[Rfam]
The record is a 76-nucleotide RNA sequence from Pristionchus pacificus, which matches "mir-71 microRNA precursor family" in Rfam.
RNA sequence: CGAGGGUGAAAAACUUGGGUAGUGAGACGAUGUGAAUUGAAUGCUUUCGUAUCACUAUUCAGUCUUUCGCCCUUGC
Numbered sequence: 001c002g003a004g005g006g007u008g009a010a011a012a013a014c015u016u017g018g019g020u021a022g023u024g025a026g027a028c029g030a031u032g033u034g035a036a037u038u039g040a041a042u043g044c045u046u047u048c049g050u051a052u053c054a055c056u057a058u059u060c061a062g063u064c065u066u067u068c069g070c071c072c073u074u075g076c
Stems, first nucleotide, its partner, number of pairs: 008068004013063003017060003021056005027050003

A search with the family's covariance model found it, with a score of 60 bits. Gene Ontology terms of the family: RISC complex and miRNA-mediated post-transcriptional gene silencing. The literature on the family includes a 2009 paper in BMC Genomics by Li et al., "Direct sequencing and expression analysis of a large number of miRNAs in Aedes aegypti and a multi-species survey of novel mosquito miRNAs".